[Rfam]
Rfam assigns this 143-nucleotide sequence from Myotis brandtii to the family "small Cajal body-specific RNA 17". By type it is a small Cajal body RNA. NCBI's taxonomy places the organism under Eukaryota, Deuterostomia, Mammalia, Yangochiroptera, Myotis. Rfam 15.1 lists 262 matches to the family in 128 species. The match comes from Rfam's covariance-model search (100 bits). About the family: scaRNAs are a specific class of small nuclear RNAs which localise to the Cajal bodies and guide the modification of RNA polymerase II transcribed spliceosomal RNAs U1, U2, U4, U5 and U12. The complete human U12-22/U4-8 scaRNA is composed of two tandem C/D box domains (termed U12-22 and U4-8). The literature on the family includes a 2004 paper in Curr Biol by Tycowski et al., "Guide RNAs with 5' Caps and Novel Box C/D snoRNA-like Domains for Modification of snRNAs in Metazoa".
RNA sequence: GCCGGGGUGUCCCAGUGCAGCCCCUGGAUGAGCCCCUAGUAUUUUCCUUAUAAGCUUGGGCCCCAAGGCUGGCGGCGAUGCCGGCCCAGAGCCUAAGAGGAUUAUAAAGGUCAGGCGAAGUGGGGCCAGGGAAUGAGCCUGGU
Numbered sequence: 001g002c003c004g005g006g007g008u009g010u011c012c013c014a015g016u017g018c019a020g021c022c023c024c025u026g027g028a029u030g031a032g033c034c035c036c037u038a039g040u041a042u043u044u045u046c047c048u049u050a051u052a053a054g055c056u057u058g059g060g061c062c063c064c065a066a067g068g069c070u071g072g073c074g075g076c077g078a079u080g081c082c083g084g085c086c087c088a089g090a091g092c093c094u095a096a097g098a099g100g101a102u103u104a105u106a107a108a109g110g111u112c113a114g115g116c117g118a119a120g121u122g123g124g125g126c127c128a129g130g131g132a133a134u135g136a137g138c139c140u141g142g143u
Stems, first nucleotide, its partner, number of pairs: 001143003005140004010132004020126005056096006063089001068085007